RNA: MIR6145 microRNA precursor family
Organism: Edolisoma coerulescens
RNA sequence: GAUCAAUACAUUCUUACUAUAGCACUCGUUCAUAUAAAGUUAUAUGAACGAGUGCUAUAGUAAGAAUGUAUUGAUCU
Numbered sequence: 001g002a003u004c005a006a007u008a009c010a011u012u013c014u015u016a017c018u019a020u021a022g023c024a025c026u027c028g029u030u031c032a033u034a035u036a037a038a039g040u041u042a043u044a045u046g047a048a049c050g051a052g053u054g055c056u057a058u059a060g061u062a063a064g065a066a067u068g069u070a071u072u073g074a075u076c077u
Stems, first nucleotide, its partner, number of pairs: 001076008010067010021056010